This 185-nucleotide RNA from Paenibacillus antarcticus belongs to the Rfam family "c-di-AMP riboswitch aptamer (ydaO/yuaA leader)". A search with the family's covariance model found it, with a score of 93 bits. Lineage of the source: Bacteria > Bacillota > Caryophanales > Paenibacillaceae > Paenibacillus.
Nucleotides: 185
Stems, first nucleotide, its partner, number of pairs: 011169004018035005036164006046087002088149003096124010127143004
Number, partner (000 for none) and nucleotide at each position: 001000a002000u003000g004000u005000c006000u007000u008000g009000a010000a011169c012168g013167c014166u015000g016000a017000a018035u019034u020033c021032a022031g023000u024000g025000u026000g027000a028000u029000u030000u031022c032021u033020g034019a035018a036164a037163c038162g039161g040160g041159g042000g043000a044000a045000c046087c047086a048000a049000u050000c051000g052000g053000a054000u055000a056000u057000g058000u059000c060000u061000g062000c063000u064000g065000c066000g067000u068000a069000a070000a071000c072000g073000c074000c075000g076000g077000a078000c079000g080000u081000a082000u083000c084000c085000a086047u087046g088149g089148g090147g091000u092000g093000a094000a095000u096124u097123u098122c099121u100120g101119a102118a103117g104116u105115g106000c107000u108000g109000u110000a111000c112000c113000a114000g115105u116104a117103u118102u119101u120100c121099a122098g123097a124096a125000u126000a127143g128142g129141g130140c131000g132000a133000c134000u135000u136000c137000c138000u139000c140130g141129c142128c143127c144000g145000a146000a147090u148089c149088c150000g151000a152000c153000a154000g155000c156000u157000a158000a159041c160040c161039u162038c163037g164036u165000a166014a167013g168012c169011g170000u171000g172000c173000a174000g175000g176000g177000a178000g179000a180000g181000g182000c183000a184000g185000c